[Rfam]
Overview:
Small nucleolar RNA SNORD111: an 80-nucleotide RNA sequence from Chaetorhynchus papuensis. Taxonomically the source falls in Chaetorhynchus (Eukaryota, Metazoa, Gnathostomata, Telluraves). By type it is a C/D-box small nucleolar RNA. It scores 52 bits against the family's covariance model.

RNA sequence: UAGCCUGAGGUGAUGAGUAUGGUUCAUGUCUCUUCUCUGAGAUUUACACUGGAGAUGCUCCAAAGACUCUGAUCAGGCAG
Numbered sequence: 001u002a003g004c005c006u007g008a009g010g011u012g013a014u015g016a017g018u019a020u021g022g023u024u025c026a027u028g029u030c031u032c033u034u035c036u037c038u039g040a041g042a043u044u045u046a047c048a049c050u051g052g053a054g055a056u057g058c059u060c061c062a063a064a065g066a067c068u069c070u071g072a073u074c075a076g077g078c079a080g
Stems, first nucleotide, its partner, number of pairs: 001080001003078003